[Rfam]
RNA sequence: AGUAGAGUAAGCAUUACGCGUAAAGUGUCACAGGAUGGGAAGUUGCCUGUGAACGAAGGAAACCGUGAAAUCUUUCCACGAUGUAUUGCUGCGUCCGCUACU
Numbered sequence: 001a002g003u004a005g006a007g008u009a010a011g012c013a014u015u016a017c018g019c020g021u022a023a024a025g026u027g028u029c030a031c032a033g034g035a036u037g038g039g040a041a042g043u044u045g046c047c048u049g050u051g052a053a054c055g056a057a058g059g060a061a062a063c064c065g066u067g068a069a070a071u072c073u074u075u076c077c078a079c080g081a082u083g084u085a086u087u088g089c090u091g092c093g094u095c096c097g098c099u100a101c102u
Base pairs, nucleotide, nucleotide: 001102002101003100004099005098010090011089012088013087015085016084017083018082019080020079021078025054026053028052029051030050031049032048033047034046038096039095040094042092058077059076060075061074
Dot-bracket structure: (((((....((((.(((((((...((.(((((((...[[[.[...)))))))))...((((............))))))).)))).)))).].]]].)))))